[Rfam]
Nucleotides: 117
Base pairs, nucleotide, nucleotide: 003077004076005075006074008067009066010065011064013062014061015060016059017058018057027053028052029051030050031049032048033047034046095117099116100115101114104111
Number, partner (000 for none) and nucleotide at each position: 001000a002000g003077c004076c005075a006074u007000g008067u009066g010065a011064u012000g013062a014061g015060c016059a017058c018057a019000a020000a021000g022000c023000g024000a025000a026000c027053u028052a029051u030050u031049c032048u033047u034046u035000c036000g037000c038000c039000u040000u041000u042000u043000a044000c045000u046034a047033a048032a049031g050030a051029a052028u053027a054000c055000c056000g057018u058017g059016u060015g061014c062013u063000a064011g065010u066009c067008a068000c069000u070000c071000a072000u073000a074006g075005u076004g077003g078000c079000a080000u081000a082000c083000g084000u085000u086000u087000a088000u089000u090000u091000u092000u093000g094000g095117a096000g097000g098000u099116g100115u101114c102000u103000u104111c105000c106000u107000u108000u109000u110000u111104g112000u113000u114101g115100g116099c117095u